[Rfam]
RNA sequence: AAGUGUGUGAGGAGUAAUGUUGAGUAUAAAUCAAAAAGCGUUUGGGGUGGAAACACGGUAACACUCCCGAACGCUUUUUGAG
Numbered sequence: 001a002a003g004u005g006u007g008u009g010a011g012g013a014g015u016a017a018u019g020u021u022g023a024g025u026a027u028a029a030a031u032c033a034a035a036a037a038g039c040g041u042u043u044g045g046g047g048u049g050g051a052a053a054c055a056c057g058g059u060a061a062c063a064c065u066c067c068c069g070a071a072c073g074c075u076u077u078u079u080g081a082g
Stems, first nucleotide, its partner, number of pairs: 034078007044068003047064003
The record is an 82-nucleotide sequence from Anabaena sp. FACHB-1237, which matches "Cyano-1 RNA" in Rfam. By type it is a small RNA. NCBI's taxonomy places the organism under Bacteria, Cyanobacteriota, Cyanophyceae, Nostocaceae, Anabaena.